mir-375 microRNA precursor family: a 74-nucleotide sequence from Octopus sinensis.
The literature on the family includes a 2005 paper in Genes Dev by Chen et al., "The developmental miRNA profiles of zebrafish as determined by small RNA cloning".
Gene Ontology terms of the family: miRNA-mediated post-transcriptional gene silencing and RISC complex.

RNA sequence: ACUAACACGAGCCCUUCGUAACAAUGCGUUUUUCACACAAACCAACUGCUUUGUUCGUUCGGCUCGCGUUACUU
Numbered sequence: 001a002c003u004a005a006c007a008c009g010a011g012c013c014c015u016u017c018g019u020a021a022c023a024a025u026g027c028g029u030u031u032u033u034c035a036c037a038c039a040a041a042c043c044a045a046c047u048g049c050u051u052u053g054u055u056c057g058u059u060c061g062g063c064u065c066g067c068g069u070u071a072c073u074u
Base pairs, nucleotide, nucleotide: 001073003071005069006068008066009065010064011063012062013061017057018056021054022053023052024051026049027048